[Rfam]
RNA sequence: CGACAUCACCUUUACUCGGAUCGUCCGGCACGUUCCUGCCGGUGAAGGGACACAUC
Numbered sequence: 001c002g003a004c005a006u007c008a009c010c011u012u013u014a015c016u017c018g019g020a021u022c023g024u025c026c027g028g029c030a031c032g033u034u035c036c037u038g039c040c041g042g043u044g045a046a047g048g049g050a051c052a053c054a055u056c
Stems, first nucleotide, its partner, number of pairs: 009048006025042006

This 56-nucleotide RNA from Streptomyces xinghaiensis belongs to the Rfam family "msiK RNA".
Rfam 15.1 lists 1,374 matches to the family in 1,364 species.
It scores 51 bits against the family's covariance model.
Pairs were carried over by alignment from the consensus structure, which is taken from published work.